[Rfam]
RNA sequence: GUUCAUUUCAAAGUUGAUAUCUCUACAAUUCAACGACAAAAAGACAAACAACCAAAUUUAAAAAUAACACAGAAGAGUAAGGUAAGUCUCCAUUAAACACAGGAAAGAGACUGGAAAACUCCUCCUUUGGAUCCUGUCUAUAGUCGCAGGU
Numbered sequence: 001g002u003u004c005a006u007u008u009c010a011a012a013g014u015u016g017a018u019a020u021c022u023c024u025a026c027a028a029u030u031c032a033a034c035g036a037c038a039a040a041a042a043g044a045c046a047a048a049c050a051a052c053c054a055a056a057u058u059u060a061a062a063a064a065u066a067a068c069a070c071a072g073a074a075g076a077g078u079a080a081g082g083u084a085a086g087u088c089u090c091c092a093u094u095a096a097a098c099a100c101a102g103g104a105a106a107g108a109g110a111c112u113g114g115a116a117a118a119c120u121c122c123u124c125c126u127u128u129g130g131a132u133c134c135u136g137u138c139u140a141u142a143g144u145c146g147c148a149g150g151u
Stems, first nucleotide, its partner, number of pairs: 001078004006073003013068004018063001020060001086145001088143002092139001100129003103125001105123001107121003112117001
RNA: Small nucleolar RNA SNORA26
Organism: Theropithecus gelada